Rfam assigns this 165-nucleotide RNA sequence from Tichowtungia aerotolerans to the family "Group II catalytic intron D1-D4-3".
Taxonomically the source falls in Tichowtungia (Bacteria, Pseudomonadati, Tichowtungiia, Tichowtungiaceae).
It scores 122 bits against the family's covariance model.
The base pairs follow the family's consensus structure.

RNA sequence: GGCUUCGUGAGGAGUCGUGGGGAGGAAGAUGGAGUUCAAGACUGUGAGCCGACGAACAGAAAUCGCAUAUAAGGCUGAGGAGGCGGAUGAGGUUGCCCAGCAAACCGAAGUCCGGGGCAGUGCCUCUACGGUAAAUGCGGCGGUUGUGCAGUUGAAGUUUGCGUU
Numbered sequence: 001g002g003c004u005u006c007g008u009g010a011g012g013a014g015u016c017g018u019g020g021g022g023a024g025g026a027a028g029a030u031g032g033a034g035u036u037c038a039a040g041a042c043u044g045u046g047a048g049c050c051g052a053c054g055a056a057c058a059g060a061a062a063u064c065g066c067a068u069a070u071a072a073g074g075c076u077g078a079g080g081a082g083g084c085g086g087a088u089g090a091g092g093u094u095g096c097c098c099a100g101c102a103a104a105c106c107g108a109a110g111u112c113c114g115g116g117g118c119a120g121u122g123c124c125u126c127u128a129c130g131g132u133a134a135a136u137g138c139g140g141c142g143g144u145u146g147u148g149c150a151g152u153u154g155a156a157g158u159u160u161g162c163g164u165u
Stems, first nucleotide, its partner, number of pairs: 001016006028165004037157001041152006047145005063140006074132003079127006085113004091106004